[Rfam]
RNA sequence: CCCCAUGGCCCUGUCUCCCAACCCUUGUACCAGUGCUGGGCUCAACCCUGGUAAGGCCUGGGGGACAGGGACUGGGAC
Number, nucleotide and partner (000 for none) at each position: 001c000002c000003c000004c000005a000006u000007g000008g000009c000010c069011c068012u067013g000014u065015c064016u063017c062018c061019c000020a000021a000022c056023c055024c000025u000026u054027g000028u053029a052030c051031c050032a049033g000034u000035g000036c000037u000038g000039g000040g000041c000042u000043c000044a000045a000046c000047c000048c000049u032050g031051g030052u029053a028054a026055g023056g022057c000058c000059u000060g000061g018062g017063g016064g015065a014066c000067a012068g011069g010070g000071a000072c000073u000074g000075g000076g000077a000078c000

mir-150 microRNA precursor family: a 78-nucleotide RNA from Macaca mulatta. It scores 67 bits against the family's covariance model.